The family of this 38-nucleotide RNA from Affinibrenneria salicis is "JUMPstart RNA".
By type it is a cis-regulatory element.
Taxonomically the source falls in Affinibrenneria (Bacteria, Pseudomonadati, Gammaproteobacteria, Pectobacteriaceae).
The base pairs follow the family's consensus structure, which is taken from published work.
The family has 128 seed sequences and 288 matches in Rfam 15.1.
RNA sequence: CCGCGCUCUGGUAGCUACAAGCCAGGGGCGGUAGCGUG
Number, nucleotide and partner (000 for none) at each position: 001c000002c000003g000004c000005g000006c000007u000008c025009u024010g023011g022012u021013a000014g000015c000016u000017a000018c000019a000020a000021g012022c011023c010024a009025g008026g000027g000028g000029c000030g000031g000032u000033a000034g000035c000036g000037u000038g000